[Rfam]
RNA: Small nucleolar RNA U3
Organism: Macaca mulatta
RNA sequence: AAGACUAUACUUUCAGGGAUCAUUUCUAUAGUUUGUUACUAGAGAAGUUUCUCUGAAUGUGUAGAGCACCGAAAACCACGAGGAAGAGACGUAGUGUUCUUUCCUGAGCGUGAAGUCCGCAUUUGGUGUUGCUUCACUGCAACCGCCAUUUGCCAUUGAUGAUCGUUCUUCUCUCCAUUUUUGGGGAGUAAGAGGGAAAGAACACGGUCUGAGUGGU
Numbered sequence: 001a002a003g004a005c006u007a008u009a010c011u012u013u014c015a016g017g018g019a020u021c022a023u024u025u026c027u028a029u030a031g032u033u034u035g036u037u038a039c040u041a042g043a044g045a046a047g048u049u050u051c052u053c054u055g056a057a058u059g060u061g062u063a064g065a066g067c068a069c070c071g072a073a074a075a076c077c078a079c080g081a082g083g084a085a086g087a088g089a090c091g092u093a094g095u096g097u098u099c100u101u102u103c104c105u106g107a108g109c110g111u112g113a114a115g116u117c118c119g120c121a122u123u124u125g126g127u128g129u130u131g132c133u134u135c136a137c138u139g140c141a142a143c144c145g146c147c148a149u150u151u152g153c154c155a156u157u158g159a160u161g162a163u164c165g166u167u168c169u170u171c172u173c174u175c176c177a178u179u180u181u182u183g184g185g186g187a188g189u190a191a192g193a194g195g196g197a198a199a200g201a202a203c204a205c206g207g208u209c210u211g212a213g214u215g216g217u
Stems, first nucleotide, its partner, number of pairs: 002040002006035002009032003015027004049065002054061001075217005094205012108166003119153003124148004128143005169191002171188007